MIR6140 microRNA precursor family: a 165-nucleotide RNA from Panax ginseng. Gene Ontology terms of the family: miRNA-mediated post-transcriptional gene silencing and RISC complex.
RNA sequence: ACACAAACUAUUUGACAAACAUUUUACAAACUGCUGAUGUAGCAUAUUCCACUUCAACAUAUUGUGUUGGACCGAAGACUAUAUUGAAACAAUUUGUUGAUCAAUACGCUGAGGUGGAGUAUGCCACAUCAGCAGUUUAUAAAAUAUUUAUAAAAUAGUUUGUGU
Numbered sequence: 001a002c003a004c005a006a007a008c009u010a011u012u013u014g015a016c017a018a019a020c021a022u023u024u025u026a027c028a029a030a031c032u033g034c035u036g037a038u039g040u041a042g043c044a045u046a047u048u049c050c051a052c053u054u055c056a057a058c059a060u061a062u063u064g065u066g067u068u069g070g071a072c073c074g075a076a077g078a079c080u081a082u083a084u085u086g087a088a089a090c091a092a093u094u095u096g097u098u099g100a101u102c103a104a105u106a107c108g109c110u111g112a113g114g115u116g117g118a119g120u121a122u123g124c125c126a127c128a129u130c131a132g133c134a135g136u137u138u139a140u141a142a143a144a145u146a147u148u149u150a151u152a153a154a155a156u157a158g159u160u161u162g163u164g165u
Stems, first nucleotide, its partner, number of pairs: 001165013015151001017149003021145006033133008042124015058108001060106005
The source organism's lineage runs through Eukaryota, Tracheophyta, Euphyllophyta, Apiales and Panax.
Rfam's curators put it in the seed alignment.
Pairs were carried over by alignment from the consensus structure, which was predicted with RNAalifold.